[Rfam]
RNA sequence: CAUCUGAAGUGAGGAUUAGAGGCAACUGAACCAUCAUCUAUUGCAAAGGUUCAGUUUCCUCUAAUAUCUCAUCUCGAAUGG
Number, nucleotide and partner (000 for none) at each position: 001c000002a000003u000004c000005u077006g000007a000008a074009g000010u071011g070012a069013g068014g000015a065016u064017u063018a062019g061020a060021g000022g058023c000024a056025a055026c054027u053028g052029a051030a000031c049032c048033a000034u000035c000036a000037u000038c000039u000040a000041u000042u000043g000044c000045a000046a000047a000048g032049g031050u000051u029052c028053a027054g026055u025056u024057u000058c022059c000060u020061c019062u018063a017064a016065u015066a000067u000068c013069u012070c011071a010072u000073c000074u008075c000076g000077a005078a000079u000080g000081g000
The family of this 81-nucleotide sequence from Zea mays is "MIR2275 microRNA precursor family".
Taxonomically the source falls in Zea (Eukaryota, Euphyllophyta, Spermatophyta, commelinids).
The sequence is in the family's curated seed alignment.
Rfam 15.1 lists 785 matches to the family in 111 species.